[Rfam]
RNA sequence: CACUUCUGCAUUAACAGAAUUCUGUUAUAAUUGUGUGACUCGGAUUACAUUUGUUUCAUGCAAUCAUGCUAGCAGAGUAUACGUGGAAGGAGAUGAAUUUGCACUGUACUGAAAAUGAGAUGUGGUCGAACCUCUUUCUUAAUGUUCGUUGGCCUCUGUCUCAAGGUUCAGUGCCACACAC
Dot-bracket structure: ...................((.(((((..((.(..(((..(((((...)))))..))).....).))..))))).)).......................((((((.(..............(.(.((((..............)))).).)..............).)))))).......
A member of the RNA family "Small nucleolar RNA SNORA81" from Labrus bergylta, 181 nucleotides long. The family's RNA type in Rfam is H/ACA-box small nucleolar RNA. Taxonomically the source falls in Labrus (Eukaryota, Gnathostomata, Euteleosteomorpha, Eurypterygia). Rfam links the family to the GO terms RNA processing and nucleolus. A reference for the family is Gu et al. (2005), "A novel experimental approach for systematic identification of box H/ACA snoRNAs from eukaryotes", Nucleic Acids Res. Pairs were carried over by alignment from the consensus structure, which was predicted with WAR.